[Rfam]
Source information: Fluoride riboswitch aptamer (crcB RNA motif): a 63-nucleotide sequence from Methyloligella halotolerans.
RNA sequence: ACCAAUGAAGGGGAUGGGGUUCCCCGACAACCGUCCAUGAGGACUGAUGACUCCUGUUUGCUA
Numbered sequence: 001a002c003c004a005a006u007g008a009a010g011g012g013g014a015u016g017g018g019g020u021u022c023c024c025c026g027a028c029a030a031c032c033g034u035c036c037a038u039g040a041g042g043a044c045u046g047a048u049g050a051c052u053c054c055u056g057u058u059u060g061c062u063a
Stems, first nucleotide, its partner, number of pairs: 010025004016054006033044004
Rfam links the family to the GO terms response to fluoride and positive regulation of gene expression.